[Rfam]
RNA: U5 spliceosomal RNA
RNA sequence: UAUCUCUGGCUCACUUGUCGUCGAACGAACAAGCGAUUCGCCUUUUACUAACCGCUUCCGGGCAAGUGGGCUCAUAUGAGUCUUUACCAAUUUUUGGCGGCUUUUUCGAAAGGAAAAGCU
Numbered sequence: 001u002a003u004c005u006c007u008g009g010c011u012c013a014c015u016u017g018u019c020g021u022c023g024a025a026c027g028a029a030c031a032a033g034c035g036a037u038u039c040g041c042c043u044u045u046u047a048c049u050a051a052c053c054g055c056u057u058c059c060g061g062g063c064a065a066g067u068g069g070g071c072u073c074a075u076a077u078g079a080g081u082c083u084u085u086a087c088c089a090a091u092u093u094u095u096g097g098c099g100g101c102u103u104u105u106u107c108g109a110a111a112g113g114a115a116a117a118g119c120u
Base pairs, nucleotide, nucleotide: 004080005079006078009071010070011069012068013067014066015065016064017063018062019061031057032056033055034054035053037051038050100119101118102117103116104115105114